RNA sequence: GGGGAUGAUCGGUUUCGACAUUGCCUGUUCAACGACGGGAAGCGGGCGGAGGAGGCGUGCUUAUCUCCUUAACGAUGCACGCAAACAAUAGGUGCCAGUAAGUCUCGCACCGCGUUCGCUCUCGCUGCUUAAGCCAGAGUGACGCCGUCGGCCCGGGUAACGCCUUCGCCCCGGUAGCCGGCGUCAGCUAGAAGGCUCGCUACGGACGUUCCGCCUCGGGGCGCCGUGGGACUCCAACCGGGGCUGGGCCCGUCGAUCGCAAUCCGUCUGCGGUAAGGAUCGGGGCCGAGCAGAACGACACACGCAGACUGCGCCCGGAGAAGACGUGGUUCCUCAGCAGUGGACGGGGGUUCGAUUCCCCCCAUCUCCACGC
Numbered sequence: 001g002g003g004g005a006u007g008a009u010c011g012g013u014u015u016c017g018a019c020a021u022u023g024c025c026u027g028u029u030c031a032a033c034g035a036c037g038g039g040a041a042g043c044g045g046g047c048g049g050a051g052g053a054g055g056c057g058u059g060c061u062u063a064u065c066u067c068c069u070u071a072a073c074g075a076u077g078c079a080c081g082c083a084a085a086c087a088a089u090a091g092g093u094g095c096c097a098g099u100a101a102g103u104c105u106c107g108c109a110c111c112g113c114g115u116u117c118g119c120u121c122u123c124g125c126u127g128c129u130u131a132a133g134c135c136a137g138a139g140u141g142a143c144g145c146c147g148u149c150g151g152c153c154c155g156g157g158u159a160a161c162g163c164c165u166u167c168g169c170c171c172c173g174g175u176a177g178c179c180g181g182c183g184u185c186a187g188c189u190a191g192a193a194g195g196c197u198c199g200c201u202a203c204g205g206a207c208g209u210u211c212c213g214c215c216u217c218g219g220g221g222c223g224c225c226g227u228g229g230g231a232c233u234c235c236a237a238c239c240g241g242g243g244c245u246g247g248g249c250c251c252g253u254c255g256a257u258c259g260c261a262a263u264c265c266g267u268c269u270g271c272g273g274u275a276a277g278g279a280u281c282g283g284g285g286c287c288g289a290g291c292a293g294a295a296c297g298a299c300a301c302a303c304g305c306a307g308a309c310u311g312c313g314c315c316c317g318g319a320g321a322a323g324a325c326g327u328g329g330u331u332c333c334u335c336a337g338c339a340g341u342g343g344a345c346g347g348g349g350g351u352u353c354g355a356u357u358c359c360c361c362c363c364a365u366c367u368c369c370a371c372g373c
Stems, first nucleotide, its partner, number of pairs: 001369007019342006027334001031331003035327003043317005048068005055082006120142002123139001125137003146183006152174002155171004162196006200229006213244005247287005254282003259271003263308002266303002346362005
A member of the RNA family "transfer-messenger RNA" from Amnibacterium setariae, 373 nucleotides long.
From the family's description: Bacterial tmRNA, also known as 10Sa RNA or SsrA, is named for its dual tRNA and mRNA-like properties. Its role is to liberate the mRNA from a stalled ribosome.
A search with the family's covariance model found it, with a score of 130 bits.